[Rfam]
RNA: SAM/SAH riboswitch aptamer
Organism: Paramylibacter kogurei
RNA sequence: UCAGCCCCACAACGGCUUCCUGACGUGGUGGUAUUACAAUAUUGGAGCG
Numbered sequence: 001u002c003a004g005c006c007c008c009a010c011a012a013c014g015g016c017u018u019c020c021u022g023a024c025g026u027g028g029u030g031g032u033a034u035u036a037c038a039a040u041a042u043u044g045g046a047g048c049g
Stems, first nucleotide, its partner, number of pairs: 004032002007028004013022002015048003019045002